[Rfam]
RNA: MIR807 microRNA precursor family
Organism: Oryza meridionalis
RNA sequence: AACCACACUAUCAAUGAAUGGAUUCUCCCGCGAGAUGACGUGACUGUUUUACCUAGGAUGAGGACAUGGCAUCCUAUUACCACUCAUCGUAUGAAAUUAAUAGGAUGCCACGUCCUCAUCCUUGAUGGAACAACCACGUUAUCACAUGGGUGAAUCCAUUAUUCGAUAGUGUGGUU
Numbered sequence: 001a002a003c004c005a006c007a008c009u010a011u012c013a014a015u016g017a018a019u020g021g022a023u024u025c026u027c028c029c030g031c032g033a034g035a036u037g038a039c040g041u042g043a044c045u046g047u048u049u050u051a052c053c054u055a056g057g058a059u060g061a062g063g064a065c066a067u068g069g070c071a072u073c074c075u076a077u078u079a080c081c082a083c084u085c086a087u088c089g090u091a092u093g094a095a096a097u098u099a100a101u102a103g104g105a106u107g108c109c110a111c112g113u114c115c116u117c118a119u120c121c122u123u124g125a126u127g128g129a130a131c132a133a134c135c136a137c138g139u140u141a142u143c144a145c146a147u148g149g150g151u152g153a154a155u156c157c158a159u160u161a162u163u164c165g166a167u168a169g170u171g172u173g174g175u176u
Stems, first nucleotide, its partner, number of pairs: 001176007009168004014163001017160003021156005027150002030147001032145001035142005041136002045132004051126001055122001057120002063114003069108011086097002